Source information:
The family of this 90-nucleotide sequence from Pelecanoides urinatrix is "NoRC associated RNA, pRNA". By type it is a non-coding RNA gene.
[Rfam]
RNA sequence: CGAUGGUGGCGUUUUUGGGGAUAGGUGUUCGUGUCGCGCGUCGUUUGGGUCGGCGGCGUGGUCGGUGACGCGAUUUUUCGGUUUUGGGGG
Numbered sequence: 001c002g003a004u005g006g007u008g009g010c011g012u013u014u015u016u017g018g019g020g021a022u023a024g025g026u027g028u029u030c031g032u033g034u035c036g037c038g039c040g041u042c043g044u045u046u047g048g049g050u051c052g053g054c055g056g057c058g059u060g061g062u063c064g065g066u067g068a069c070g071c072g073a074u075u076u077u078u079c080g081g082u083u084u085u086g087g088g089g090g
Base pairs, nucleotide, nucleotide: 004087006085008084009083011082012081018079019078020077021076027069028068029067030065033062034061035060036059037058038057039056